[Rfam]
RNA sequence: GUCAUCGCGAGGUGGGGGCCGGAGGAAGCCCAAUCCAAAGCUGCGGGGCGACGAACAGGAACCCGAUAUGAGGUGUGGUACAUCCGGGGCGAGCGGGCACGUGACCGCGAAGCCCUCCAUCUGCGACGGGGGUGUGCUUUAUAAAUCGGGCGUCCACGCAGUGACAGUUCUGCGC
Numbered sequence: 001g002u003c004a005u006c007g008c009g010a011g012g013u014g015g016g017g018g019c020c021g022g023a024g025g026a027a028g029c030c031c032a033a034u035c036c037a038a039a040g041c042u043g044c045g046g047g048g049c050g051a052c053g054a055a056c057a058g059g060a061a062c063c064c065g066a067u068a069u070g071a072g073g074u075g076u077g078g079u080a081c082a083u084c085c086g087g088g089g090c091g092a093g094c095g096g097g098c099a100c101g102u103g104a105c106c107g108c109g110a111a112g113c114c115c116u117c118c119a120u121c122u123g124c125g126a127c128g129g130g131g132g133u134g135u136g137c138u139u140u141a142u143a144a145a146u147c148g149g150g151c152g153u154c155c156a157c158g159c160a161g162u163g164a165c166a167g168u169u170c171u172g173c174g175c
Stems, first nucleotide, its partner, number of pairs: 002015005028175002031172002036167001040162006046155005062150006073142003077138007087115004093108004
The record is a 175-nucleotide RNA from Halomonas halmophila, which matches "Group II catalytic intron D1-D4-3" in Rfam. It scores 123 bits against the family's covariance model. The base pairs follow the family's consensus structure. Rfam describes the family as follows. Group II introns are found in rRNA, tRNA and mRNA of organelles in fungi, plants and protists, and also in mRNA in bacteria.